A member of the RNA family "c-di-AMP riboswitch aptamer (ydaO/yuaA leader)" from Salinispora arenicola, 132 nucleotides long. The organism belongs to Salinispora arenicola, within Bacteria.

[Rfam]
Nucleotides: 132
Base pairs, nucleotide, nucleotide: 011116012115013114014113018033019032020031021030022029034111036109037108038107039106044053045052054096055095056094062073063072064071065070076090077089078088079087
Number, partner (000 for none) and nucleotide at each position: 001000g002000c003000g004000u005000g006000g007000c008000c009000g010000c011116c012115g013114c014113c015000u016000a017000a018033u019032c020031g021030c022029c023000u024000g025000c026000c027000a028000g029022g030021g031020c032019g033018a034111g035000c036109c037108g038107g039106g040000g041000a042000a043000c044053c045052a046000g047000g048000u049000a050000c051000c052045u053044g054096g055095g056094g057000u058000g059000c060000a061000u062073c063072c064071g065070c066000g067000u068000c069000a070065g071064c072063g073062g074000u075000a076090g077089g078088g079087a080000u081000c082000u083000u084000c085000c086000g087079u088078c089077c090076c091000g092000a093000a094056c095055c096054c097000g098000u099000c100000a101000g102000c103000u104000a105000a106039c107038c108037c109036g110000a111034c112000c113014g114013g115012c116011g117000g118000u119000u120000g121000a122000c123000g124000g125000a126000a127000g128000g129000a130000c131000a132000u